A member of the RNA family "L2-Alphaproteobacteria ribosomal protein leader", 71 nucleotides long.
The literature on the family includes a 2020 paper in BMC Microbiol by Eckert and Weinberg, "Discovery of 20 novel ribosomal leader candidates in bacteria and archaea".
[Rfam]
RNA sequence: GGGCACCUACGGGGGCCUAUAACAUCAGGUUCCUGCACGUCAGGGACCGCCAAGCAAACGGAAGAAGCUAA
Numbered sequence: 001g002g003g004c005a006c007c008u009a010c011g012g013g014g015g016c017c018u019a020u021a022a023c024a025u026c027a028g029g030u031u032c033c034u035g036c037a038c039g040u041c042a043g044g045g046a047c048c049g050c051c052a053a054g055c056a057a058a059c060g061g062a063a064g065a066a067g068c069u070a071a
Base pairs, nucleotide, nucleotide: 001018002017003016004015006014007013008012028048029047030046031045032044033043034042
Dot-bracket structure: ((((.(((...))))))).........(((((((.......))))))).......................